[Rfam]
RNA sequence: GAGCCGGGUGCCCUCCUGGGGAAGGGCUGCAGGACUUGGUACUUUCUCCCCGAGCCCUCCGAGCCCUUGCUGGUGCCCGGCGGCACGGGGG
Numbered sequence: 001g002a003g004c005c006g007g008g009u010g011c012c013c014u015c016c017u018g019g020g021g022a023a024g025g026g027c028u029g030c031a032g033g034a035c036u037u038g039g040u041a042c043u044u045u046c047u048c049c050c051c052g053a054g055c056c057c058u059c060c061g062a063g064c065c066c067u068u069g070c071u072g073g074u075g076c077c078c079g080g081c082g083g084c085a086c087g088g089g090g091g
Stems, first nucleotide, its partner, number of pairs: 001042001003040003010030002014026003064090004068085005

Rfam assigns this 91-nucleotide RNA sequence from Nyctibius bracteatus to the family "Rhodo-rpoB RNA". Rfam classes the family as a cis-regulatory element. The family's consensus secondary structure is taken from published work. Lineage of the source: Eukaryota > Bilateria > Archosauria > Coelurosauria > Nyctibius.